About this RNA
A member of the RNA family "Bacterial small subunit ribosomal RNA" from bacterium enrichment culture clone Ecwsrb007, 584 nucleotides of a longer RNA. The family is grouped with related families in Rfam's "SSU clan". The family's consensus secondary structure is taken from published work.
RNA sequence: UGACGGGGGCCCGCACAAGCGGAGGAACAUGUGGUUUAAUUCGAUGAUACGCGAGGAACCUUACCCGGGUUUGAACGCAUUCGGACCGAGGUGGAAACACCUUUUCUAGCAAUAGCCGUUUGCGAGGUGCUGCAUGGUUGUCGUCAGCUCGUGCCGUGAGGUGUCGGCUUAAGUGCCAUAACGAGCGCAACCCUUAUCCUUUGUUGCCAGCGGUCCGGCCGGGAACUCAAAGGAGACUGCCAGUGAUAAACUGGAGGAAGGUGGGGAUGACGUCAAGUCAUCAUGGCCCUUACGACCAGGGCUACACACGUGCUACAAUGGCGCAUACAAAGAGAAGCGACCUCGCGAGAGCAAGCGGACCUCAUAAAGUGCGUCGUAGUCCGGAUUGGAGUCUGCAACUCGACUCCAUGAAGUCGGAAUCGCUAGUAAUCGUGGAUCAGAAUGCCACGGUGAAUACGUUCCCGGGCCUUGUACACACCGCCCGUCACACCAUGGGAGUGGGUUGCAAAAGAAGUAGGUAGCUUAACCUUCGGGAGGGCGCUUACCACUUUGUGAUUCAUGACUGGGGUGAAGUCGUAACAAGG
Numbered sequence: 001u002g003a004c005g006g007g008g009g010c011c012c013g014c015a016c017a018a019g020c021g022g023a024g025g026a027a028c029a030u031g032u033g034g035u036u037u038a039a040u041u042c043g044a045u046g047a048u049a050c051g052c053g054a055g056g057a058a059c060c061u062u063a064c065c066c067g068g069g070u071u072u073g074a075a076c077g078c079a080u081u082c083g084g085a086c087c088g089a090g091g092u093g094g095a096a097a098c099a100c101c102u103u104u105u106c107u108a109g110c111a112a113u114a115g116c117c118g119u120u121u122g123c124g125a126g127g128u129g130c131u132g133c134a135u136g137g138u139u140g141u142c143g144u145c146a147g148c149u150c151g152u153g154c155c156g157u158g159a160g161g162u163g164u165c166g167g168c169u170u171a172a173g174u175g176c177c178a179u180a181a182c183g184a185g186c187g188c189a190a191c192c193c194u195u196a197u198c199c200u201u202u203g204u205u206g207c208c209a210g211c212g213g214u215c216c217g218g219c220c221g222g223g224a225a226c227u228c229a230a231a232g233g234a235g236a237c238u239g240c241c242a243g244u245g246a247u248a249a250a251c252u253g254g255a256g257g258a259a260g261g262u263g264g265g266g267a268u269g270a271c272g273u274c275a276a277g278u279c280a281u282c283a284u285g286g287c288c289c290u291u292a293c294g295a296c297c298a299g300g301g302c303u304a305c306a307c308a309c310g311u312g313c314u315a316c317a318a319u320g321g322c323g324c325a326u327a328c329a330a331a332g333a334g335a336a337g338c339g340a341c342c343u344c345g346c347g348a349g350a351g352c353a354a355g356c357g358g359a360c361c362u363c364a365u366a367a368a369g370u371g372c373g374u375c376g377u378a379g380u381c382c383g384g385a386u387u388g389g390a391g392u393c394u395g396c397a398a399c400u401c402g403a404c405u406c407c408a409u410g411a412a413g414u415c416g417g418a419a420u421c422g423c424u425a426g427u428a429a430u431c432g433u434g435g436a437u438c439a440g441a442a443u444g445c446c447a448c449g450g451u452g453a454a455u456a457c458g459u460u461c462c463c464g465g466g467c468c469u470u471g472u473a474c475a476c477a478c479c480g481c482c483c484g485u486c487a488c489a490c491c492a493u494g495g496g497a498g499u500g501g502g503u504u505g506c507a508a509a510a511g512a513a514g515u516a517g518g519u520a521g522c523u524u525a526a527c528c529u530u531c532g533g534g535a536g537g538g539c540g541c542u543u544a545c546c547a548c549u550u551u552g553u554g555a556u557u558c559a560u561g562a563c564u565g566g567g568g569u570g571a572a573g574u575c576g577u578a579a580c581a582a583g584g
Stems, first nucleotide, its partner, number of pairs: 001475002003472003007469007015459002019423004024316001026314001028312006034305002040055004064300002067297002070294001076124003082118003088103006106115003126289002129287004135283002137278003140274001142272002147186006153162003166177003192266004197234007207223002211221003237257002240254005320375007332363003337356002342351003382413001387408007429451007478583001480580001483576002488570004493565003498560012514545006521539004527534002